RNA sequence: UGGCAGGCUUAGUCACGUGGUUACUUCGUUUAUUUAUCAAAAAAUUGAUUUGUACUCAGUUCCGACCAAGAACCAAGGACGCUGUCCUGCUUUUUA
Numbered sequence: 001u002g003g004c005a006g007g008c009u010u011a012g013u014c015a016c017g018u019g020g021u022u023a024c025u026u027c028g029u030u031u032a033u034u035u036a037u038c039a040a041a042a043a044a045u046u047g048a049u050u051u052g053u054a055c056u057c058a059g060u061u062c063c064g065a066c067c068a069a070g071a072a073c074c075a076a077g078g079a080c081g082c083u084g085u086c087c088u089g090c091u092u093u094u095u096a
Base pairs, nucleotide, nucleotide: 002091003090004089005088006087007086012080013079014078018075019074020073025072026071027070029068
Dot-bracket structure: .((((((....(((...(((....(((.(......................................).))))))..))).....)))))).....

Shown here is a 96-nucleotide RNA sequence from Magallana gigas, a member of the family "Vault RNA". Rfam 15.1 lists 2,873 matches to the family in 431 species. A reference for the family is Stadler et al. (2009), "Evolution of Vault RNAs", Mol Biol Evol. Pairs were carried over by alignment from the consensus structure, which is taken from published work. The match comes from Rfam's covariance-model search (39 bits). This family of RNAs are found as part of the enigmatic vault ribonucleoprotein complex.